[Rfam]
RNA sequence: CUCUUAUCAAGAGAGGUGGAGGGAUGUGCCCGAAGAAGCCCGGCAACCAUCAGUUUUAAAACUGAAAUGGUGCCAAUUCACACAAAGUAUGGAUACUUUGAUAGAUGAGAG
Numbered sequence: 001c002u003c004u005u006a007u008c009a010a011g012a013g014a015g016g017u018g019g020a021g022g023g024a025u026g027u028g029c030c031c032g033a034a035g036a037a038g039c040c041c042g043g044c045a046a047c048c049a050u051c052a053g054u055u056u057u058a059a060a061a062c063u064g065a066a067a068u069g070g071u072g073c074c075a076a077u078u079c080a081c082a083c084a085a086a087g088u089a090u091g092g093a094u095a096c097u098u099u100g101a102u103a104g105a106u107g108a109g110a111g
Stems, first nucleotide, its partner, number of pairs: 001111008013041001015040003021031003025082004042074004047070002050065003078103001083100006
Background
A member of the RNA family "SAM riboswitch aptamer (S box leader)" from Bacillus sp. B1-b2, 111 nucleotides long.